RNA sequence: CGACAAGUGUGGAACAAGUCGAAGUAGCCGGGUUUGGCGAUACCCCCAGAGAGCUGGUGGACGGUGCGAACCAGCGGAUCCGACCCGUGCGAAUUACAGCUUGGGAGCUCCGCCCCUGACAAAAGCCGGGGAGCGGCGGGUGGUAAAACCCGUUAUUCUCAGAGCGGAAAGCCUUGACGGGUUUCAACAAGGGUGGUACCGCGAGGCAUCCUCGUCCCUUCG
Numbered sequence: 001c002g003a004c005a006a007g008u009g010u011g012g013a014a015c016a017a018g019u020c021g022a023a024g025u026a027g028c029c030g031g032g033u034u035u036g037g038c039g040a041u042a043c044c045c046c047c048a049g050a051g052a053g054c055u056g057g058u059g060g061a062c063g064g065u066g067c068g069a070a071c072c073a074g075c076g077g078a079u080c081c082g083a084c085c086c087g088u089g090c091g092a093a094u095u096a097c098a099g100c101u102u103g104g105g106a107g108c109u110c111c112g113c114c115c116c117u118g119a120c121a122a123a124a125g126c127c128g129g130g131g132a133g134c135g136g137c138g139g140g141u142g143g144u145a146a147a148a149c150c151c152g153u154u155a156u157u158c159u160c161a162g163a164g165c166g167g168a169a170a171g172c173c174u175u176g177a178c179g180g181g182u183u184u185c186a187a188c189a190a191g192g193g194u195g196g197u198a199c200c201g202c203g204a205g206g207c208a209u210c211c212u213c214g215u216c217c218c219u220u221c222g
Stems, first nucleotide, its partner, number of pairs: 007108002015103004027090002029087004043077002053075006111135003115131003137152005167185004172180002190219004201215005

T-box leader: a 222-nucleotide sequence from Melghirimyces profundicolus. Rfam describes the family as follows. Uncharged tRNA acts as the effector for transcription antitermination of genes in the T-box leader family. T-boxes are found upstream of many aminoacyl-tRNA synthetase genes and some amino acid biosynthetic genes usually in Gram-positive bacteria. The anticodon of a specific tRNA base pairs to a specifier sequence within the T-box motif, and the NCCA acceptor tail of the tRNA base pairs to a conserved bulge in the T-box antiterminator hairpin. NCBI's taxonomy places the organism under Bacteria, Bacillota, Bacilli, Caryophanales, Melghirimyces. A reference for the family is Grundy et al. (1994), "Interaction between the acceptor end of tRNA and the T box stimulates antitermination in the Bacillus subtilis tyrS gene: a new role for the discriminator base", J Bacteriol. It is annotated as a cis-regulatory leader.